[Rfam]
RNA sequence: GGGCACCUUCGGGGGCCUUCACAUCAGGGGCCGCAUGCCGGCUCCGCCAAGCAAACGGAAGAAGCUA
Numbered sequence: 001g002g003g004c005a006c007c008u009u010c011g012g013g014g015g016c017c018u019u020c021a022c023a024u025c026a027g028g029g030g031c032c033g034c035a036u037g038c039c040g041g042c043u044c045c046g047c048c049a050a051g052c053a054a055a056c057g058g059a060a061g062a063a064g065c066u067a
Stems, first nucleotide, its partner, number of pairs: 001018004006014003027045007
RNA: L2-Alphaproteobacteria ribosomal protein leader